[Rfam]
RNA: ASdes TB sRNA
Organism: Streptomycetaceae bacterium
RNA sequence: AGCGCCACCGGGUCGACCGCGCGGGCGGCCAUCAGGUAGUCGCGGAUCGCGAUGCCGUGGCGCCCUUC
Numbered sequence: 001a002g003c004g005c006c007a008c009c010g011g012g013u014c015g016a017c018c019g020c021g022c023g024g025g026c027g028g029c030c031a032u033c034a035g036g037u038a039g040u041c042g043c044g045g046a047u048c049g050c051g052a053u054g055c056c057g058u059g060g061c062g063c064c065c066u067u068c
Stems, first nucleotide, its partner, number of pairs: 004063002008059001011030003017025002035056004040052005